[Rfam]
RNA sequence: UCGGGGGCACACGACUGGCGCAGGUGGGCGACCACCGGGGAGUGCAAGCAGGACCGUCGUACGCCUGGGUGGUCCUC
Numbered sequence: 001u002c003g004g005g006g007g008c009a010c011a012c013g014a015c016u017g018g019c020g021c022a023g024g025u026g027g028g029c030g031a032c033c034a035c036c037g038g039g040g041a042g043u044g045c046a047a048g049c050a051g052g053a054c055c056g057u058c059g060u061a062c063g064c065c066u067g068g069g070u071g072g073u074c075c076u077c
Base pairs, nucleotide, nucleotide: 003049007045010044011043012042015039016038017065018064019063020062024035025034026033027032054072055071056070057069058068